The record is a 120-nucleotide RNA sequence from Mycoplasma nasistruthionis, which matches "DUF3800-I RNA" in Rfam. Taxonomically the source falls in Mycoplasma (Bacteria, Bacillati, Mycoplasmatales, Mycoplasmataceae). It is annotated as a small RNA. A search with the family's covariance model found it, with a score of 69 bits. Pairs were carried over by alignment from the consensus structure, which is taken from published work. From the family's description: Actinobacteria, Firmicutes, Fusobacteria, Proteobacteria (1 example), Tenericutes (2 examples).
[Rfam]
RNA sequence: UAUAUUUCCAGGUAGAAAUACCCUGUCAACUGGUAGUAUGUGAACAGAUGAGUUUAAGUGUUAUGUAAAAACGCCUGGCUACUAGGCUGCUUAUUUAUAAAAUAGGCAGUUUUUUGGCAA
Numbered sequence: 001u002a003u004a005u006u007u008c009c010a011g012g013u014a015g016a017a018a019u020a021c022c023c024u025g026u027c028a029a030c031u032g033g034u035a036g037u038a039u040g041u042g043a044a045c046a047g048a049u050g051a052g053u054u055u056a057a058g059u060g061u062u063a064u065g066u067a068a069a070a071a072c073g074c075c076u077g078g079c080u081a082c083u084a085g086g087c088u089g090c091u092u093a094u095u096u097a098u099a100a101a102a103u104a105g106g107c108a109g110u111u112u113u114u115u116g117g118c119a120a
Stems, first nucleotide, its partner, number of pairs: 009025003012021003030085006039078001042075001043054003058074005086110010